[Rfam]
RNA sequence: GAAUUUAUGUGGGUCAAAUUAUCAUCUAGCAGUGGCUGAUCUACAUCAGAUUGCUCAUUAUCACUUGUUAUCUCAAGUUGGACUAUCAACUUAGAUUGUAGAAGCUUUUCACAAACAACUUGAUGAAUGUAAUGAAGGUGGCUUUAUUCC
Numbered sequence: 001g002a003a004u005u006u007a008u009g010u011g012g013g014u015c016a017a018a019u020u021a022u023c024a025u026c027u028a029g030c031a032g033u034g035g036c037u038g039a040u041c042u043a044c045a046u047c048a049g050a051u052u053g054c055u056c057a058u059u060a061u062c063a064c065u066u067g068u069u070a071u072c073u074c075a076a077g078u079u080g081g082a083c084u085a086u087c088a089a090c091u092u093a094g095a096u097u098g099u100a101g102a103a104g105c106u107u108u109u110c111a112c113a114a115a116c117a118a119c120u121u122g123a124u125g126a127a128u129g130u131a132a133u134g135a136a137g138g139u140g141g142c143u144u145u146a147u148u149c150c
Stems, first nucleotide, its partner, number of pairs: 006146002009142001012139001014137001018133002023129003027125002030122002
RNA: MIR480 microRNA precursor family